The record is an 81-nucleotide RNA sequence from Neogobius melanostomus, which matches "mir-26 microRNA precursor family" in Rfam. Pairs were carried over by alignment from the consensus structure, which was predicted with RNAalifold. The family has 82 seed sequences and 2,251 matches in Rfam 15.1. For this family Rfam cites "Identification of novel genes coding for small expressed RNAs" (Lagos-Quintana et al., Science, 2001).

RNA sequence: CUCGGGCCUGGUUCAAGUAAUCCAGGAUAGGUUUGUUCAGUGCAGCUCAGCCUAUUCCGGAUGACUUGGUUCAGGAGCGCU
Numbered sequence: 001c002u003c004g005g006g007c008c009u010g011g012u013u014c015a016a017g018u019a020a021u022c023c024a025g026g027a028u029a030g031g032u033u034u035g036u037u038c039a040g041u042g043c044a045g046c047u048c049a050g051c052c053u054a055u056u057c058c059g060g061a062u063g064a065c066u067u068g069g070u071u072c073a074g075g076a077g078c079g080c081u
Stems, first nucleotide, its partner, number of pairs: 003079002007075005014068005020062003025057009